[Rfam]
The record is an 82-nucleotide RNA from Struthio camelus, which matches "Small nucleolar RNA SNORD111" in Rfam. The match comes from Rfam's covariance-model search (59 bits). Rfam links the family to the GO terms nucleolus and RNA processing. The literature on the family includes a 2001 paper in EMBO J by Huttenhofer et al., "RNomics: an experimental approach that identifies 201 candidates for novel, small, non-messenger RNAs in mouse". The organism belongs to Struthio camelus, within Eukaryota. The family's consensus secondary structure was predicted with RNAalifold.
Nucleotides: 082
Stems, first nucleotide, its partner, number of pairs: 002081004
Number, partner (000 for none) and nucleotide at each position: 001000u002081a003080g004079c005078c006000u007000g008000a009000a010000a011000u012000g013000a014000u015000g016000a017000u018000a019000u020000g021000a022000a023000u024000u025000c026000a027000u028000g029000u030000c031000u032000c033000u034000u035000c036000u037000c038000u039000g040000a041000a042000a043000u044000g045000u046000a047000u048000u049000g050000u051000g052000g053000a054000g055000a056000c057000a058000a059000u060000u061000a062000a063000a064000u065000g066000c067000a068000u069000u070000u071000c072000u073000g074000a075000u076000c077000g078005g079004g080003c081002u082000u